Notes
Shown here is an 86-nucleotide RNA from Lactobacillus acetotolerans, a member of the family "tRNA". For this family Rfam cites "The tertiary structure of tRNA and the development of the genetic code" (Hou, Trends Biochem Sci, 1993). Lineage of the source: Bacteria > Bacillati > Bacillota > Lactobacillales > Lactobacillus.

RNA sequence: GCGGGCGUGGCGGAAUGGUAGACGCGCAAGACUAAGGAUCUUGUGAUCGAUUUUAGAUCAUGGAAGUUCGAGCCUUCUCGCCCGCA
Numbered sequence: 001g002c003g004g005g006c007g008u009g010g011c012g013g014a015a016u017g018g019u020a021g022a023c024g025c026g027c028a029a030g031a032c033u034a035a036g037g038a039u040c041u042u043g044u045g046a047u048c049g050a051u052u053u054u055a056g057a058u059c060a061u062g063g064a065a066g067u068u069c070g071a072g073c074c075u076u077c078u079c080g081c082c083c084g085c086a
Stems, first nucleotide, its partner, number of pairs: 001085007010025003027043005062078005
Dot-bracket structure: (((((((..(((..........))).(((((.......)))))..................(((((.......)))))))))))).